The family of this 78-nucleotide RNA from Bacillus infantis is "Glycine riboswitch aptamer". Lineage of the source: Bacteria > Bacillati > Bacillota > Bacillus > Bacillus infantis. Rfam describes the family as follows. This family represents the bacterial glycine riboswitch. Glycine riboswitches usually consist of two metabolite-binding aptamers domains with similar structures in tandem.
RNA sequence: CUCUGGAGAGUGCUUCAUUUAGGAAGCCACCAAAGGGGAAAACCGGUAAAAGGUAAACUUUCAGGUGCCAGGACAGAG
Dot-bracket structure: (((((......((((........)))).(((.(..(((....((.......))....))))..))).......)))))
Numbered sequence: 001c002u003c004u005g006g007a008g009a010g011u012g013c014u015u016c017a018u019u020u021a022g023g024a025a026g027c028c029a030c031c032a033a034a035g036g037g038g039a040a041a042a043c044c045g046g047u048a049a050a051a052g053g054u055a056a057a058c059u060u061u062c063a064g065g066u067g068c069c070a071g072g073a074c075a076g077a078g
Stems, first nucleotide, its partner, number of pairs: 001078005012027004029066003033061001036060003043053002